Notes
Shown here is a 384-nucleotide RNA sequence from Rummeliibacillus stabekisii, a member of the family "Bacterial RNase P class B". A search with the family's covariance model found it, with a score of 315 bits. The family's RNA type in Rfam is ribozyme. Ribonuclease P (RNase P) is a ubiquitous endoribonuclease, found in archaea, bacteria and eukarya as well as chloroplasts and mitochondria. Its best characterised activity is the generation of mature 5'-ends of tRNAs by cleaving the 5'-leader elements of precursor-tRNAs. Cellular RNase Ps are ribonucleoproteins. RNA from bacterial RNase Ps retains its catalytic activity in the absence of the protein subunit, i.e. it is a ribozyme.

RNA sequence: AAGAACAAGUAAUCGCUGCAAUGUUAAACAUUGUUGAGGAAAGUCCAUGCUCGCACGGCUCUGAGAUGAACGUAGUGUUCGCGCUUAGCGAAUCAAUAAGCUAAGGCAGUCUAUAGGCUGACGGCAGGAGGAAAACCUAAGUCCUUUAUGGAUAUGGUUGAAACUCCUUGAAAGUGCCACAGUGACGAAGCUGCAUCGGAAACGUUGCAGGUGGAACGAGGUAAACCCCGCGAGCGAGCAACCCAAAUUAUGGUAGGGGCAUUCUCCAAAAAGAAAUGAAUGGAUGGAGAGACGGAAAUUUAUUUCCGUAGAUAGAUGAUUACUACCCAUUAGUACAAGGCAUAGCGCCGUUAUAGUACUCGGGCACAAAACAUGGCUUACGUU
Numbered sequence: 001a002a003g004a005a006c007a008a009g010u011a012a013u014c015g016c017u018g019c020a021a022u023g024u025u026a027a028a029c030a031u032u033g034u035u036g037a038g039g040a041a042a043g044u045c046c047a048u049g050c051u052c053g054c055a056c057g058g059c060u061c062u063g064a065g066a067u068g069a070a071c072g073u074a075g076u077g078u079u080c081g082c083g084c085u086u087a088g089c090g091a092a093u094c095a096a097u098a099a100g101c102u103a104a105g106g107c108a109g110u111c112u113a114u115a116g117g118c119u120g121a122c123g124g125c126a127g128g129a130g131g132a133a134a135a136c137c138u139a140a141g142u143c144c145u146u147u148a149u150g151g152a153u154a155u156g157g158u159u160g161a162a163a164c165u166c167c168u169u170g171a172a173a174g175u176g177c178c179a180c181a182g183u184g185a186c187g188a189a190g191c192u193g194c195a196u197c198g199g200a201a202a203c204g205u206u207g208c209a210g211g212u213g214g215a216a217c218g219a220g221g222u223a224a225a226c227c228c229c230g231c232g233a234g235c236g237a238g239c240a241a242c243c244c245a246a247a248u249u250a251u252g253g254u255a256g257g258g259g260c261a262u263u264c265u266c267c268a269a270a271a272a273g274a275a276a277u278g279a280a281u282g283g284a285u286g287g288a289g290a291g292a293c294g295g296a297a298a299u300u301u302a303u304u305u306c307c308g309u310a311g312a313u314a315g316a317u318g319a320u321u322a323c324u325a326c327c328c329a330u331u332a333g334u335a336c337a338a339g340g341c342a343u344a345g346c347g348c349c350g351u352u353a354u355a356g357u358a359c360u361c362g363g364g365c366a367c368a369a370a371a372c373a374u375g376g377c378u379u380a381c382g383u384u
Base pairs, nucleotide, nucleotide: 004384005383006382008324009323010322011321012320013319014318016036018034019033020032021031041379042378043377045376046375047374048373049372050238051237052236053235054234055073056072057071060069061068079233080232081231082230083229084105085104086103087102088101089100106122107120108119109118110117111116123228124227126168127167128166129165134159135158136157137156141153142152143151174226175225176222177221178220191210192209193208194207195206197204198203242258243257244256262291263290264289265288266287267286268285292309293308294307295306296305297304328364330362332360333359334358335357336356